Small nucleolar RNA Z107/R87: a 122-nucleotide sequence from Camphora micrantha. Its family is annotated with RNA processing and nucleolus in the Gene Ontology. It scores 83 bits against the family's covariance model.
[Rfam]
RNA sequence: GAUUGCUGUGAUGCUACAGAAAUUCAAGCUCAACAGACCGGAUUGCAGAUCCCUUUCUCUCUCUCUUUUUGAUCUGAGAUUGGGUUUUUUGCAUGUCGACUACCCCGCUGAACUGAGCAAUC
Numbered sequence: 001g002a003u004u005g006c007u008g009u010g011a012u013g014c015u016a017c018a019g020a021a022a023u024u025c026a027a028g029c030u031c032a033a034c035a036g037a038c039c040g041g042a043u044u045g046c047a048g049a050u051c052c053c054u055u056u057c058u059c060u061c062u063c064u065c066u067u068u069u070u071g072a073u074c075u076g077a078g079a080u081u082g083g084g085u086u087u088u089u090u091g092c093a094u095g096u097c098g099a100c101u102a103c104c105c106c107g108c109u110g111a112a113c114u115g116a117g118c119a120a121u122c
Stems, first nucleotide, its partner, number of pairs: 001122006

The organism belongs to Camphora, within Eukaryota. The family's consensus secondary structure was predicted with RNAfold. By type it is a C/D-box small nucleolar RNA.